[Rfam]
The record is a 63-nucleotide sequence from Oncorhynchus kisutch, which matches "mir-7552 microRNA precursor family" in Rfam.

RNA sequence: UUACAAUUAAAGGAUAUUUCUUGGGAUUGAAUAUGAGACGGAAAUUCCCCUUAAUUGUUUGGC
Numbered sequence: 001u002u003a004c005a006a007u008u009a010a011a012g013g014a015u016a017u018u019u020c021u022u023g024g025g026a027u028u029g030a031a032u033a034u035g036a037g038a039c040g041g042a043a044a045u046u047c048c049c050c051u052u053a054a055u056u057g058u059u060u061g062g063c
Base pairs, nucleotide, nucleotide: 003058004057005056006055007054008053009052010051012049013048016045017044018043019042020041021040025034
A search with the family's covariance model found it, with a score of 78 bits. Rfam links the family to the GO terms RISC complex and miRNA-mediated post-transcriptional gene silencing. Pairs were carried over by alignment from the consensus structure, which was predicted with RNAalifold. The family has 4 seed sequences and 220 matches in Rfam 15.1.